The family of this 133-nucleotide sequence from Neomonachus schauinslandi is "U4 spliceosomal RNA". From the family's description: U4 small nuclear RNA (U4 snRNA) is a component of the major U2-dependent spliceosome. The organism belongs to Neomonachus, within Eukaryota. Pairs were carried over by alignment from the consensus structure, which is taken from published work. A search with the family's covariance model found it, with a score of 83 bits.
RNA sequence: AGCUUUGCGCAGUGGCAGUAUCGUAGCCCAUGAGGUUUAUCUGAGGUGCGAUUAUUGCUAACUGAAAAACAAUAAUGAACCCAUUACAUUAACAUAAGUUAUUGCAUUUAAUUUCUAAACUUUUUAUUUAAUA
Numbered sequence: 001a002g003c004u005u006u007g008c009g010c011a012g013u014g015g016c017a018g019u020a021u022c023g024u025a026g027c028c029c030a031u032g033a034g035g036u037u038u039a040u041c042u043g044a045g046g047u048g049c050g051a052u053u054a055u056u057g058c059u060a061a062c063u064g065a066a067a068a069a070c071a072a073u074a075a076u077g078a079a080c081c082c083a084u085u086a087c088a089u090u091a092a093c094a095u096a097a098g099u100u101a102u103u104g105c106a107u108u109u110a111a112u113u114u115c116u117a118a119a120c121u122u123u124u125u126a127u128u129u130a131a132u133a
Stems, first nucleotide, its partner, number of pairs: 020052005026047003034042002083109001087104002090101004122133001124131002